Small nucleolar RNA SNORA70: a 136-nucleotide RNA sequence from Callithrix jacchus. For this family Rfam cites "Pseudouridine in RNA: what, where, how, and why" (Charette and Gray, IUBMB Life, 2000). Its family is annotated with RNA processing and nucleolus in the Gene Ontology. Rfam classes the family as an H/ACA-box small nucleolar RNA. The organism belongs to Callithrix, within Eukaryota. Rfam describes the family as follows. snoRNA U70 seems to be exclusive to mammals and is a member of the H/ACA class of snoRNA which contain H (ANANNA) and ACA box motifs. H/ACA box snoRNAs are involved in the conversion of uridines to pseudouridines (5-ribosyluracil) a constituent of structural RNAs (transfer, ribosomal, small nuclear, and small nucleolar).
RNA sequence: CUGCAGCCAAUUUAGCCAACUGGGUUCCCUUCCUCAUGAGGGCCCAGUGUGCAAUGGCUGCAAACAGCAGCUUCCUUGGUAGCGUAACACACACUGUUUCUUGUAUGGGUUGCACUAAGGGACCUUGGAGACAAGC
Numbered sequence: 001c002u003g004c005a006g007c008c009a010a011u012u013u014a015g016c017c018a019a020c021u022g023g024g025u026u027c028c029c030u031u032c033c034u035c036a037u038g039a040g041g042g043c044c045c046a047g048u049g050u051g052c053a054a055u056g057g058c059u060g061c062a063a064a065c066a067g068c069a070g071c072u073u074c075c076u077u078g079g080u081a082g083c084g085u086a087a088c089a090c091a092c093a094c095u096g097u098u099u100c101u102u103g104u105a106u107g108g109g110u111u112g113c114a115c116u117a118a119g120g121g122a123c124c125u126u127g128g129a130g131a132c133a134a135g136c
Base pairs, nucleotide, nucleotide: 002053003052004051005050019048020047021046022045025042026041027040078124079123080122090112091111094108095107